A member of the RNA family "CyVA-1 RNA", 76 nucleotides long. Pairs were carried over by alignment from the consensus structure, which is taken from published work. Rfam's curators write: Cyanobacteria, Acidobacteria (1 example), Verrucomicrobia (1 example). Rfam classes the family as a small RNA.
[Rfam]
RNA sequence: CGGAUCGACGGGUGUUUUGCUGUUUCGCCCGGUAUUGCCAACCGAAGGAGGACGGCGUCAGGAAGGCGAAGGUCCA
Number, nucleotide and partner (000 for none) at each position: 001c000002g075003g074004a073005u072006c071007g000008a000009c031010g030011g029012g028013u000014g000015u000016u000017u000018u000019g000020c000021u000022g000023u000024u000025u000026c000027g000028c012029c011030c010031g009032g000033u000034a000035u000036u068037g067038c066039c065040a000041a000042c062043c061044g000045a000046a000047g000048g000049a000050g000051g000052a000053c000054g000055g000056c000057g000058u000059c000060a000061g043062g042063a000064a000065g039066g038067c037068g036069a000070a000071g006072g005073u004074c003075c002076a000